Notes: This 271-nucleotide RNA from Gossypium australe belongs to the Rfam family "RNase MRP".

RNA sequence: CAACUACUAGACGAAGUGAAUGGGUUGCGGCCGGUGCAGGUAACUUGGCCAGGCCCAGGAAAGUCCCCGGGCCCUCAACUGCAGAGAUGCAGGCUUGGAAACGAGUAAAGCUCAAGGCAGUUGGGGUCUGUCCUUACCAUAGGCAAGGCGGGGCUGAGACGAGUGUGGAGCCUUAAUGACCCUAAUGCCGGAGCAAUUUGGCCGAUGCCCACAGUUAUUCACUUGGUCCCUAAGCUUGGACUAACUGAACGGGGCUUAUGAUCUAGUAGUU
Numbered sequence: 001c002a003a004c005u006a007c008u009a010g011a012c013g014a015a016g017u018g019a020a021u022g023g024g025u026u027g028c029g030g031c032c033g034g035u036g037c038a039g040g041u042a043a044c045u046u047g048g049c050c051a052g053g054c055c056c057a058g059g060a061a062a063g064u065c066c067c068c069g070g071g072c073c074c075u076c077a078a079c080u081g082c083a084g085a086g087a088u089g090c091a092g093g094c095u096u097g098g099a100a101a102c103g104a105g106u107a108a109a110g111c112u113c114a115a116g117g118c119a120g121u122u123g124g125g126g127u128c129u130g131u132c133c134u135u136a137c138c139a140u141a142g143g144c145a146a147g148g149c150g151g152g153g154c155u156g157a158g159a160c161g162a163g164u165g166u167g168g169a170g171c172c173u174u175a176a177u178g179a180c181c182c183u184a185a186u187g188c189c190g191g192a193g194c195a196a197u198u199u200g201g202c203c204g205a206u207g208c209c210c211a212c213a214g215u216u217a218u219u220c221a222c223u224u225g226g227u228c229c230c231u232a233a234g235c236u237u238g239g240a241c242u243a244a245c246u247g248a249a250c251g252g253g254g255c256u257u258a259u260g261a262u263c264u265a266g267u268a269g270u271u
Base pairs, nucleotide, nucleotide: 002271003270004269005268006267007266008265009264010263011262014224015223016222017221018220019219022056023055024054025053026052061257062256063255065254066253067252068251080091081090082089083088093106094105095104096103097102110194111193116189117188118187119186121184130180131179132178141173142172143171144170159166160165226241227240228239229238